Source information:
The family of this 235-nucleotide sequence from Paraliobacillus ryukyuensis is "T-box leader". About the family: Uncharged tRNA acts as the effector for transcription antitermination of genes in the T-box leader family. T-boxes are found upstream of many aminoacyl-tRNA synthetase genes and some amino acid biosynthetic genes usually in Gram-positive bacteria. The anticodon of a specific tRNA base pairs to a specifier sequence within the T-box motif, and the NCCA acceptor tail of the tRNA base pairs to a conserved bulge in the T-box antiterminator hairpin. The organism belongs to Paraliobacillus, within Bacteria. A search with the family's covariance model found it, with a score of 102 bits.
RNA sequence: AAACAAGCAUAGAAAGAGUUAGUAAAUUUUACGGAGCCAUGGAUAGGGAAAAAAAGCCUUAGACUGAAAGCUUUUUUCAUCGGUGUAAAAUUGAAAUUUCACUCUGGAGCUGGCGUUCGGGACCUUGUCUAAGCAAGUAAGGACGUUACCGGGAUUUUCCCGUUAUCAAUGAUAGAGUGGGCAAAGAAUGUUUUGUCAACAAGGGUGGUACCGCGAUCAAAGCCUCGUCCCUUUU
Number, nucleotide and partner (000 for none) at each position: 001a000002a000003a000004c000005a000006a000007g110008c109009a000010u000011a000012g000013a000014a000015a105016g104017a103018g102019u000020u000021a000022g000023u000024a000025a092026a091027u090028u089029u088030u087031a000032c000033g000034g000035a000036g000037c000038c000039a080040u079041g078042g000043a000044u000045a000046g000047g000048g000049a000050a077051a076052a075053a074054a073055a072056g071057c070058c000059u000060u000061a000062g000063a000064c000065u000066g000067a000068a000069a000070g057071c056072u055073u054074u053075u052076u051077u050078c041079a040080u039081c000082g000083g000084u000085g000086u000087a030088a029089a028090a027091u026092u025093g000094a000095a000096a000097u000098u000099u000100c000101a000102c018103u017104c016105u015106g000107g000108a000109g008110c007111u000112g000113g146114c145115g144116u143117u142118c141119g000120g000121g000122a000123c000124c000125u000126u000127g000128u000129c000130u000131a000132a000133g000134c000135a000136a000137g000138u000139a000140a000141g118142g117143a116144c115145g114146u113147u000148a000149c000150c162151g161152g160153g000154a000155u000156u000157u000158u000159c000160c152161c151162g150163u000164u000165a000166u000167c000168a000169a000170u000171g000172a000173u000174a000175g000176a000177g000178u000179g000180g197181g196182c195183a194184a193185a192186g191187a000188a000189u000190g000191u186192u185193u184194u183195g182196u181197c180198a000199a000200c000201a000202a232203g231204g230205g229206u000207g000208g000209u000210a000211c000212c000213g228214c227215g226216a225217u000218c000219a000220a000221a000222g000223c000224c000225u216226c215227g214228u213229c205230c204231c203232u202233u000234u000235u000